[Rfam]
RNA sequence: UGCUUAGUGUAAGUAUGUCCCAUGCAAUAUUUGGAAUAUACUUAUUCUAAAA
Numbered sequence: 001u002g003c004u005u006a007g008u009g010u011a012a013g014u015a016u017g018u019c020c021c022a023u024g025c026a027a028u029a030u031u032u033g034g035a036a037u038a039u040a041c042u043u044a045u046u047c048u049a050a051a052a
Stems, first nucleotide, its partner, number of pairs: 006048002009045004014040003018036001020034002022031001